RNA sequence: AUUUGAGUUUUCUAGGGUUCCGCAAAGAUGAAUCUUUGGUCAGGUCCGAGAGGAAACGCACAUUUAUGUGUACACGGAGGGAGAAAAGCCUGGGAGAU
Numbered sequence: 001a002u003u004u005g006a007g008u009u010u011u012c013u014a015g016g017g018u019u020c021c022g023c024a025a026a027g028a029u030g031a032a033u034c035u036u037u038g039g040u041c042a043g044g045u046c047c048g049a050g051a052g053g054a055a056a057c058g059c060a061c062a063u064u065u066a067u068g069u070g071u072a073c074a075c076g077g078a079g080g081g082a083g084a085a086a087a088g089c090c091u092g093g094g095a096g097a098u
Stems, first nucleotide, its partner, number of pairs: 007057006015047002020044002022041001023038006058071005073093001075096001079091003

The family of this 98-nucleotide sequence from Sarcina ventriculi is "Guanidine-I riboswitch aptamer".